[Rfam]
RNA: MIR2617 microRNA precursor family
RNA sequence: AAGUAGUGUGACAUGCCCGUUUGGGAUUUACUCUGAUGAUUAUUUAAUAUUUCAUUGCUUUUGGGUAAUGGGGUGUUACAUUUUU
Dot-bracket structure: .((.((((((((((.((((((.............................................)))))))))))))))).))